[Rfam]
RNA sequence: GACGCCGUCGAGCCGGUCCUCCCUCCGGGAGGCCGGGCCGGGGACCCACCGCAGUCCUGGGGUGCAGCGCGUGUCCGCACGCGCCGGGCGAGUCCACGCCCGAACCCGUCAGCUAACCCGGUAGGCGGCCUGGGAAGAGGAGAA
Dot-bracket structure: .....((((...((((((............))))))((((((....((.........))(((.....((((........))))..((((........))))...))).........)))))).)))).................
Rfam assigns this 144-nucleotide sequence from Geodermatophilus nigrescens to the family "c-di-AMP riboswitch aptamer (ydaO/yuaA leader)".
A search with the family's covariance model found it, with a score of 54 bits.
Gene Ontology terms of the family: regulation of gene expression and cyclic-di-AMP binding.